[Rfam]
RNA sequence: CCCUUAACUAUUAAAAGUUUUGUUUUGGUCCCUUAACUUACUUUUUGGUUUCGUUUUGGUCCCUUAACUAUUAAAAGUUUUGUUUUGGUCCUUUAACUUAUUUUUUGGUUUUGUUUUGGUCCUUUAUGUUAGAAUGAAUGUAUUAGAGUUAAGGGACCAAAACGAAACCAAAAAAUAAGUUAAGGAACCAAAACGAAACUUUUAAUAGUUAAGGGACCAAAAGAAAACCCAAAAAUAAGUUAUGGAACCGAAACGAAACUUUUAAUAGUUAAGGAA
Numbered sequence: 001c002c003c004u005u006a007a008c009u010a011u012u013a014a015a016a017g018u019u020u021u022g023u024u025u026u027g028g029u030c031c032c033u034u035a036a037c038u039u040a041c042u043u044u045u046u047g048g049u050u051u052c053g054u055u056u057u058g059g060u061c062c063c064u065u066a067a068c069u070a071u072u073a074a075a076a077g078u079u080u081u082g083u084u085u086u087g088g089u090c091c092u093u094u095a096a097c098u099u100a101u102u103u104u105u106u107g108g109u110u111u112u113g114u115u116u117u118g119g120u121c122c123u124u125u126a127u128g129u130u131a132g133a134a135u136g137a138a139u140g141u142a143u144u145a146g147a148g149u150u151a152a153g154g155g156a157c158c159a160a161a162a163c164g165a166a167a168c169c170a171a172a173a174a175a176u177a178a179g180u181u182a183a184g185g186a187a188c189c190a191a192a193a194c195g196a197a198a199c200u201u202u203u204a205a206u207a208g209u210u211a212a213g214g215g216a217c218c219a220a221a222a223g224a225a226a227a228c229c230c231a232a233a234a235a236u237a238a239g240u241u242a243u244g245g246a247a248c249c250g251a252a253a254c255g256a257a258a259c260u261u262u263u264a265a266u267a268g269u270u271a272a273g274g275a276a
Stems, first nucleotide, its partner, number of pairs: 002274007023253003027249003031245002034242007042234002045231001047229005

Background
This 276-nucleotide RNA from Medicago truncatula belongs to the Rfam family "MIR2655 microRNA precursor family". Lineage of the source: Eukaryota > Streptophyta > Euphyllophyta > fabids > Medicago. A search with the family's covariance model found it, with a score of 161 bits.